[Rfam]
RNA sequence: UUCCCCGUCUGAUGUUCAGUUAUAGAUUUUGUGUUAGGUACGGUUCGCCAAAACCGUCCAAUUGCUUAGUACCCAAUUAAUCUAACACAGAAUUUUUAAACCGAUCUGAUGACGGGUUUUUUG
Numbered sequence: 001u002u003c004c005c006c007g008u009c010u011g012a013u014g015u016u017c018a019g020u021u022a023u024a025g026a027u028u029u030u031g032u033g034u035u036a037g038g039u040a041c042g043g044u045u046c047g048c049c050a051a052a053a054c055c056g057u058c059c060a061a062u063u064g065c066u067u068a069g070u071a072c073c074c075a076a077u078u079a080a081u082c083u084a085a086c087a088c089a090g091a092a093u094u095u096u097u098a099a100a101c102c103g104a105u106c107u108g109a110u111g112a113c114g115g116g117u118u119u120u121u122u123g
Stems, first nucleotide, its partner, number of pairs: 004116006014106001016104002019101003024096003027091003031088002034085004041056005060078005

MtlS RNA: a 123-nucleotide sequence from Photobacterium gaetbulicola. The organism belongs to Photobacterium gaetbulicola, within Bacteria. On this family, see Mustachio et al., Journal of Bacteriology 2012: "The Vibrio cholerae mannitol transporter is regulated post-transcriptionally by the MtlS small RNA".